Notes:
The family of this 87-nucleotide RNA from Slackia heliotrinireducens is "ZMP/ZTP riboswitch aptamer (pfl RNA motif)".
[Rfam]
RNA sequence: CAUAUGUGCUGUGACUGACGGAACAAAGUGGAACAACCACGGGGGAACAGCGCAUUCCAUAGUAUGCCGACCGUCUGGGCAAGCCGA
Number, nucleotide and partner (000 for none) at each position: 001c000002a000003u000004a055005u054006g053007u052008g051009c050010u049011g048012u047013g000014a000015c044016u043017g075018a074019c073020g072021g071022a000023a000024c000025a000026a000027a000028g040029u039030g038031g037032a000033a000034c000035a000036a000037c031038c030039a029040c028041g000042g000043g016044g015045g000046a000047a012048c011049a010050g009051c008052g007053c006054a005055u004056u000057c000058c000059a000060u000061a000062g000063u000064a000065u081066g080067c079068c078069g000070a000071c021072c020073g019074u018075c017076u000077g000078g068079g067080c066081a065082a000083g000084c000085c000086g000087a000
The family's consensus secondary structure is taken from published work. Its family is annotated with one-carbon metabolic process and regulation of purine nucleotide biosynthetic process in the Gene Ontology.